[Rfam]
RNA sequence: ACUGAGGGUGGCGAUGAGGCUCGCCACAACCGCGGAUAUUGCCGCUAAUGGCCUCUACCUGAGA
Numbered sequence: 001a002c003u004g005a006g007g008g009u010g011g012c013g014a015u016g017a018g019g020c021u022c023g024c025c026a027c028a029a030c031c032g033c034g035g036a037u038a039u040u041g042c043c044g045c046u047a048a049u050g051g052c053c054u055c056u057a058c059c060u061g062a063g064a
Stems, first nucleotide, its partner, number of pairs: 010025004016055006032045004